The record is a 133-nucleotide sequence from Conger conger, which matches "Small nucleolar RNA SNORA68" in Rfam. The family's RNA type in Rfam is H/ACA-box small nucleolar RNA. About the family: U68 is a member of the H/ACA class of small nucleolar RNAs (snoRNAs) which act as guides in the the modification of uridines to pseudouridines. Rfam links the family to the GO terms RNA processing and nucleolus. NCBI's taxonomy places the organism under Eukaryota, Deuterostomia, Neopterygii, Congridae, Conger. The family's consensus secondary structure was predicted with PFOLD.
RNA sequence: UUUGCACACAAAACCCAAAGAUCAUCAUUUACACCAAUAAUAUGAUCUUGUCUGGUGUGCAGAAAUCAAGUGUGCCUUGUCGCCUUUCAGACCGCUGACGUGGGUCUAAAAGUGAAAUCAAGGUUCUACAUCG
Numbered sequence: 001u002u003u004g005c006a007c008a009c010a011a012a013a014c015c016c017a018a019a020g021a022u023c024a025u026c027a028u029u030u031a032c033a034c035c036a037a038u039a040a041u042a043u044g045a046u047c048u049u050g051u052c053u054g055g056u057g058u059g060c061a062g063a064a065a066u067c068a069a070g071u072g073u074g075c076c077u078u079g080u081c082g083c084c085u086u087u088c089a090g091a092c093c094g095c096u097g098a099c100g101u102g103g104g105u106c107u108a109a110a111a112g113u114g115a116a117a118u119c120a121a122g123g124u125u126c127u128a129c130a131u132c133g
Base pairs, nucleotide, nucleotide: 002062003061004060005059006058007057008056009055020047021046022045023044024043025042027038028037029036072126074124075123076122077121078120084112085111086110087109089107090106091105092104093103